[Rfam]
RNA: UnaL2 LINE 3' element
RNA sequence: UAACAUCCAACUUGUAAGUCGCUCUGGAUAAGAGCGUCUGCUAAAUGACGUAAA
Numbered sequence: 001u002a003a004c005a006u007c008c009a010a011c012u013u014g015u016a017a018g019u020c021g022c023u024c025u026g027g028a029u030a031a032g033a034g035c036g037u038c039u040g041c042u043a044a045a046u047g048a049c050g051u052a053a054a
Base pairs, nucleotide, nucleotide: 013043014041015040016039020036021035022034023033024032025031